[Rfam]
RNA: Bacterial large subunit ribosomal RNA, nucleotides 885 to 1322
RNA sequence: CUCCCCGAAAUGCAUCGACGUGCAGCGUCCGGUGUUUCUUCCCGGAGGUAGAGAUACUGAUUGGGCUAGGGCCCCGAAAGGGGUACCGAACCCAACCAAACUCCGAAUGCCGGGAUAGAUAGCCGGGCAGUGAGACUGCGGGGGAUCAGCUCCGUAGUCGAGAGGGAAACAACCCAGAUCGCCAGCUAAGGUCCCAAAGUGUACGCUAAGUGGAGAAGGAGGUAGAGCUCCUAAGACAGCGAGGAGGUUGGCUUAGAGGCAGCCAUCCUUUAAAGAGUGCGUAACAGCUCACUCGUCGAGGGGCUCUGCGCCGAAAAUUUAGCGGGGCUAAGCGUACCACCGAAGCUGCGGGAUUGCCUUAUGGCAAUCGGUAGGGGAGCGUACCCUGCGGGAUGAAGUGCUACCGGAAGGAGGCAUGGACUGCAGGGUAGUGAGAAU
Number, nucleotide and partner (000 for none) at each position: 001c379002u378003c377004c376005c375006c374007g000008a000009a000010a000011u024012g023013c022014a021015u020016c000017g000018a000019c000020g015021u014022g013023c012024a011025g000026c130027g128028u127029c126030c125031g124032g123033u122034g000035u000036u121037u118038c000039u000040u115041c114042c113043c112044g111045g110046a000047g000048g000049u000050a000051g104052a102053g101054a000055u000056a000057c000058u098059g097060a000061u000062u094063g093064g092065g091066c000067u000068a000069g087070g086071g084072c083073c082074c081075c080076g000077a000078a000079a000080g075081g074082g073083g072084u071085a000086c070087c069088g000089a000090a000091c065092c064093c063094a062095a000096c000097c059098a058099a000100a000101c053102u052103c000104c051105g000106a000107a000108u000109g000110c045111c044112g043113g042114g041115a040116u000117a000118g037119a000120u000121a036122g033123c032124c031125g030126g029127g028128c027129a000130g026131u000132g000133a000134g159135a158136c157137u156138g155139c154140g153141g152142g151143g150144g000145a000146u000147c000148a000149g000150c143151u142152c141153c140154g139155u138156a137157g136158u135159c134160g000161a000162g000163a000164g175165g174166g173167a000168a000169a000170c000171a000172a000173c166174c165175c164176a000177g000178a000179u351180c350181g349182c348183c000184a347185g346186c345187u000188a000189a000190g341191g340192u339193c000194c000195c000196a000197a000198a000199g338200u000201g337202u336203a335204c334205g333206c332207u000208a000209a000210g000211u000212g000213g000214a000215g000216a000217a000218g312219g311220a000221g000222g309223u308224a307225g306226a305227g304228c303229u302230c301231c300232u000233a000234a000235g000236a000237c000238a000239g296240c295241g294242a293243g292244g000245a269246g268247g267248u000249u000250g264251g263252c262253u000254u000255a000256g000257a000258g000259g000260c000261a000262g252263c251264c250265a000266u000267c247268c246269u245270u274271u000272a000273a000274a270275g290276a000277g000278u000279g288280c287281g000282u000283a000284a000285c000286a000287g280288c279289u000290c275291a000292c243293u242294c241295g240296u239297c000298g000299a000300g231301g230302g229303g228304c227305u226306c225307u224308g223309c222310g000311c219312c218313g000314a000315a000316a000317a000318u000319u000320u000321a000322g000323c000324g000325g000326g000327g000328c000329u000330a000331a000332g206333c205334g204335u203336a202337c201338c199339a192340c191341c190342g000343a000344a000345g186346c185347u184348g182349c181350g180351g179352g369353a368354u367355u366356g365357c364358c363359u000360u000361a000362u000363g358364g357365c356366a355367a354368u353369c352370g000371g000372u000373a000374g006375g005376g004377g003378a002379g001380c433381g000382u430383a429384c428385c427386c426387u425388g424389c423390g422391g421392g000393a000394u000395g000396a000397a000398g417399u416400g415401c414402u413403a000404c411405c410406g000407g000408a000409a000410g405411g404412a000413g402414g401415c400416a399417u398418g000419g000420a000421c391422u390423g389424c388425a387426g386427g385428g384429u383430a382431g000432u000433g380434a000435g000436a000437a000438u000